[Rfam]
RNA: Bacterial RNase P class A
Organism: Sandaracinobacter neustonicus
RNA sequence: CCAGAAGUCUAGGCGGCCGCGUCCCUGUGAAGGGUCGAGGAAAGUCCGGGCUCCAAGGAUUGACGGUGGCGGGUAACGCCCGCCGGGGGCGACCCCAGGGACAGUGCCACAGAAAGCAGACCGCCUUCCGGCCUUUCGGGGUGAGGGCAAGGUCGAAAGGGUGCGGCAAGAGCGCACCGCGCGGCUGGCAACAGGCGCGGCACGGCAAACCCCACCGGGAGCAAGACCGAAUAGGCGCGCGGUGCUUCGCUUCGGCGGGCAGGCCUGAUCCGGCUGACGCGUGCGGGUUGGUUGCUGGAGGUGCGUGGCGACGCGCAUCCGAGAUGAAUGGUCGCCGCCCGAGAGGGAACAGAACCCGGCUUACGGGCUUCUGGCACA
Numbered sequence: 001c002c003a004g005a006a007g008u009c010u011a012g013g014c015g016g017c018c019g020c021g022u023c024c025c026u027g028u029g030a031a032g033g034g035u036c037g038a039g040g041a042a043a044g045u046c047c048g049g050g051c052u053c054c055a056a057g058g059a060u061u062g063a064c065g066g067u068g069g070c071g072g073g074u075a076a077c078g079c080c081c082g083c084c085g086g087g088g089g090c091g092a093c094c095c096c097a098g099g100g101a102c103a104g105u106g107c108c109a110c111a112g113a114a115a116g117c118a119g120a121c122c123g124c125c126u127u128c129c130g131g132c133c134u135u136u137c138g139g140g141g142u143g144a145g146g147g148c149a150a151g152g153u154c155g156a157a158a159g160g161g162u163g164c165g166g167c168a169a170g171a172g173c174g175c176a177c178c179g180c181g182c183g184g185c186u187g188g189c190a191a192c193a194g195g196c197g198c199g200g201c202a203c204g205g206c207a208a209a210c211c212c213c214a215c216c217g218g219g220a221g222c223a224a225g226a227c228c229g230a231a232u233a234g235g236c237g238c239g240c241g242g243u244g245c246u247u248c249g250c251u252u253c254g255g256c257g258g259g260c261a262g263g264c265c266u267g268a269u270c271c272g273g274c275u276g277a278c279g280c281g282u283g284c285g286g287g288u289u290g291g292u293u294g295c296u297g298g299a300g301g302u303g304c305g306u307g308g309c310g311a312c313g314c315g316c317a318u319c320c321g322a323g324a325u326g327a328a329u330g331g332u333c334g335c336c337g338c339c340c341g342a343g344a345g346g347g348a349a350c351a352g353a354a355c356c357c358g359g360c361u362u363a364c365g366g367g368c369u370u371c372u373g374g375c376a377c378a
Base pairs, nucleotide, nucleotide: 001374002373003372004371005370006369007368008367009366010365012336013335014334015333016332017331018330020037021036023034024033025032026031042362043361044360046359047358048357049356050355051221052220053219054218061268064217065216066215067214068213069083070082071081072080073079084098085096086095087094088093099212100211104210105209106206107205108204121152122151123148124147125146126145127144128143160178161177162176163175164174165173179201180199181198182197183196185194186193187192225293226292227291228290235284236283237282238281239280240279262275263274264273265272300319301318302317303316304315305314306313307312